[Rfam]
RNA: Small nucleolar RNA Z266
RNA sequence: AACGGCGAGGGAUGAUGACUCAAUUAGAUGUGCGAAUGGAGAAAUUCUUCAUUUUGAGCUCAAAACUUUAUUUGGCAUAAUAAUCUGACUUCGCCUUC
Number, nucleotide and partner (000 for none) at each position: 001a000002a097003c000004g095005g094006c093007g092008a091009g090010g089011g000012a000013u000014g000015a000016u000017g000018a000019c000020u000021c000022a000023a000024u000025u000026a000027g000028a000029u000030g000031u000032g000033c000034g000035a000036a000037u000038g000039g000040a000041g000042a000043a000044a000045u000046u000047c000048u000049u000050c000051a000052u000053u000054u000055u000056g000057a000058g000059c000060u000061c000062a000063a000064a000065a000066c000067u000068u000069u000070a000071u000072u000073u000074g000075g000076c000077a000078u000079a000080a000081u000082a000083a000084u000085c000086u000087g000088a000089c010090u009091u008092c007093g006094c005095c004096u000097u002098c000